[Rfam]
RNA sequence: AACUCCUUUAAGUUAGUUCAGAGAGGCUAACAAGGCGGUAGCUUAUAUUGUAAGGUUCAUCCCAUCAGAAGUGGGGUGUAUUGUGCGCAUGCGGGCGGCCAAACUGUUAGGUUCAGUUUGGCCGCUUUUGUU
Numbered sequence: 001a002a003c004u005c006c007u008u009u010a011a012g013u014u015a016g017u018u019c020a021g022a023g024a025g026g027c028u029a030a031c032a033a034g035g036c037g038g039u040a041g042c043u044u045a046u047a048u049u050g051u052a053a054g055g056u057u058c059a060u061c062c063c064a065u066c067a068g069a070a071g072u073g074g075g076g077u078g079u080a081u082u083g084u085g086c087g088c089a090u091g092c093g094g095g096c097g098g099c100c101a102a103a104c105u106g107u108u109a110g111g112u113u114c115a116g117u118u119u120g121g122c123c124g125c126u127u128u129u130g131u132u
Base pairs, nucleotide, nucleotide: 003037005035006034007033008032013030014029015028016027017026018025052084054082055081056080058078059077060076061075062074063073064072065071093127094126095125096124097123098122099121100120101119102118103117104116105115106114
RNA: PyrR binding site